[Rfam]
RNA sequence: GACUGUCCAUGAUGUUAAAACACUAAAUCCCUGGGAUGUGUUUUAGUUGAUUUUAGUGUC
Number, nucleotide and partner (000 for none) at each position: 001g060002a059003c058004u000005g000006u000007c000008c000009a000010u000011g000012a000013u000014g047015u046016u045017a044018a043019a042020a041021c040022a039023c038024u000025a000026a000027a000028u036029c035030c034031c000032u000033g000034g030035g029036a028037u000038g023039u022040g021041u020042u019043u018044u017045a016046g015047u014048u000049g000050a000051u000052u000053u000054u000055a000056g000057u000058g003059u002060c001

Shown here is a 60-nucleotide RNA sequence from Mytilus coruscus, a member of the family "Selenocysteine insertion sequence 1". The incorporation of selenocysteine into a protein sequence is directed by an in-frame UGA codon (usually a stop codon) within the coding region of the mRNA. Selenoprotein mRNAs contain a conserved secondary structure in the 3' UTR that is required for the distinction of UGA stop from UGA selenocysteine. For this family Rfam cites "A novel RNA structural motif in the selenocysteine insertion element of eukaryotic selenoprotein mRNAs" (Walczak et al., RNA, 1996). It is annotated as a cis-regulatory element.